[Rfam]
RNA sequence: GGUAAUCUACUAUAUGUAGCUUAUAUAAAGCCAAAAUUGGUUGGCAGUUUCUACCUAAGACCGUAAUCUUAGACUAUGAGUAUCAAAGUAGAUCAC
Dot-bracket structure: ..................(((((((....(((((......))))).........((((((......))))))..)))))))...............
Numbered sequence: 001g002g003u004a005a006u007c008u009a010c011u012a013u014a015u016g017u018a019g020c021u022u023a024u025a026u027a028a029a030g031c032c033a034a035a036a037u038u039g040g041u042u043g044g045c046a047g048u049u050u051c052u053a054c055c056u057a058a059g060a061c062c063g064u065a066a067u068c069u070u071a072g073a074c075u076a077u078g079a080g081u082a083u084c085a086a087a088g089u090a091g092a093u094c095a096c
Stems, first nucleotide, its partner, number of pairs: 019081007030045005055072006